The record is a 95-nucleotide RNA from Crassaminicella thermophila, which matches "pan motif" in Rfam. It is annotated as a cis-regulatory element. A search with the family's covariance model found it, with a score of 51 bits.
RNA sequence: UAGUUGACAUCGAAAGAGUCAAACUAUAAUUUUUUUUAAAAAUGAAUAAAGGAAAUAACGUAUUUUGCACUGAUCCAUUGGACAGGGACGAAAGA
Numbered sequence: 001u002a003g004u005u006g007a008c009a010u011c012g013a014a015a016g017a018g019u020c021a022a023a024c025u026a027u028a029a030u031u032u033u034u035u036u037u038a039a040a041a042a043u044g045a046a047u048a049a050a051g052g053a054a055a056u057a058a059c060g061u062a063u064u065u066u067g068c069a070c071u072g073a074u075c076c077a078u079u080g081g082a083c084a085g086g087g088a089c090g091a092a093a094g095a
Base pairs, nucleotide, nucleotide: 001026002025003024004022005021006020007019008018010017011016065091066090067089068087070085071084072083074082075081076080